[Rfam]
RNA sequence: ACAAUAAGAGGGCGGAGAAAAAUCCGUUCUCACUACGCGGUCAAAGUCUUGGGAGGAUAAGAUCCUGGCGCGGUUAUUCGCAGCCGCCGUGACAUGAACGGAAAUGGAUCGGACGCGUUUUGUUUGCAAGGCUUCGUGCCUUGCAUUUUUUU
Numbered sequence: 001a002c003a004a005u006a007a008g009a010g011g012g013c014g015g016a017g018a019a020a021a022a023u024c025c026g027u028u029c030u031c032a033c034u035a036c037g038c039g040g041u042c043a044a045a046g047u048c049u050u051g052g053g054a055g056g057a058u059a060a061g062a063u064c065c066u067g068g069c070g071c072g073g074u075u076a077u078u079c080g081c082a083g084c085c086g087c088c089g090u091g092a093c094a095u096g097a098a099c100g101g102a103a104a105u106g107g108a109u110c111g112g113a114c115g116c117g118u119u120u121u122g123u124u125u126g127c128a129a130g131g132c133u134u135c136g137u138g139c140c141u142u143g144c145a146u147u148u149u150u151u152u
Base pairs, nucleotide, nucleotide: 003152004151006149010029011028012027013026014025015024036117037116038115039114046058047057048056049055061110062109063108064107065106067085068084069083070081071080072079087101088100089099125145126144127143128142129141130140131139132138